[Rfam]
RNA sequence: GUCUCUACACCGCCGAAUCGUCGAGAAUCAGCGAACCGGGGACCCGGGCACCAUGGGGUGAAUCCGCGCGUCAGCGGUAGGGCGAAUCUCUUCCCGCCCGAACCCGUCAGCUAACCCGGUAGGCGGGCUUACGGAAGAAGGA
Numbered sequence: 001g002u003c004u005c006u007a008c009a010c011c012g013c014c015g016a017a018u019c020g021u022c023g024a025g026a027a028u029c030a031g032c033g034a035a036c037c038g039g040g041g042a043c044c045c046g047g048g049c050a051c052c053a054u055g056g057g058g059u060g061a062a063u064c065c066g067c068g069c070g071u072c073a074g075c076g077g078u079a080g081g082g083c084g085a086a087u088c089u090c091u092u093c094c095c096g097c098c099c100g101a102a103c104c105c106g107u108c109a110g111c112u113a114a115c116c117c118g119g120u121a122g123g124c125g126g127g128c129u130u131a132c133g134g135a136a137g138a139a140g141g142a
Base pairs, nucleotide, nucleotide: 011125012124013123014122018034019033020032035120036119037118038117039116040115045055046054056105057104058103064077065076066075067074080099081098082097083096